[Rfam]
RNA: Group II catalytic intron D1-D4-1
RNA sequence: GAAGCGUGGUUGAAACAAGAUUUACUGUGAGAAGUCAGCCGAGGUCAUAGUAGGAUAUAGCGACUAGUGUCCGAAGGAC
Numbered sequence: 001g002a003a004g005c006g007u008g009g010u011u012g013a014a015a016c017a018a019g020a021u022u023u024a025c026u027g028u029g030a031g032a033a034g035u036c037a038g039c040c041g042a043g044g045u046c047a048u049a050g051u052a053g054g055a056u057a058u059a060g061c062g063a064c065u066a067g068u069g070u071c072c073g074a075a076g077g078a079c
Stems, first nucleotide, its partner, number of pairs: 001022002005019001007017002010014001035042002044079003053072006
Dot-bracket structure: ((..(.((.(...).)).).))............((....)).(((......((((((........))))))....)))